[Rfam]
RNA: MIR814 microRNA precursor family
Organism: Oryza meridionalis
Nucleotides: 083
Base pairs, nucleotide, nucleotide: 001083002082003081004080005079006078007077010074011073012072013071014070015069016068018066019065020064021063022062023061024060025059026058027057028056029055030054031053032052033051034050035049037047038046
Number, partner (000 for none) and nucleotide at each position: 001083a002082c003081c004080g005079g006078a007077u008000a009000g010074g011073a012072c013071a014070c015069u016068u017000c018066a019065u020064a021063g022062u023061a024060c025059a026058a027057c028056g029055a030054a031053u032052c033051u034050g035049g036000a037047c038046a039000g040000g041000g042000a043000g044000u045000a046038u047037g048000c049035c050034c051033g052032g053031a054030u055029u056028c057027g058026u059025u060024g061023u062022a063021c064020u065019a066018u067000g068016a069015a070014g071013u072012g073011u074010c075000a076000c077007a078006u079005c080004c081003g082002g083001u